[Rfam]
RNA: Plastid-rps12 3UTR RNA
RNA sequence: GGUUCCCGUUGGUGCAAAUCCAAUCACCUCAAUUUUAAAUUUAAGAUGAGAAAGGAUUCCCCAUUGAUAGCAAAUGGUAUUCAUUAAGCAGGGGAAAUCUUAUU
Numbered sequence: 001g002g003u004u005c006c007c008g009u010u011g012g013u014g015c016a017a018a019u020c021c022a023a024u025c026a027c028c029u030c031a032a033u034u035u036u037a038a039a040u041u042u043a044a045g046a047u048g049a050g051a052a053a054g055g056a057u058u059c060c061c062c063a064u065u066g067a068u069a070g071c072a073a074a075u076g077g078u079a080u081u082c083a084u085u086a087a088g089c090a091g092g093g094g095a096a097a098u099c100u101u102a103u104u
Stems, first nucleotide, its partner, number of pairs: 009023004059093003063084002066081003070078002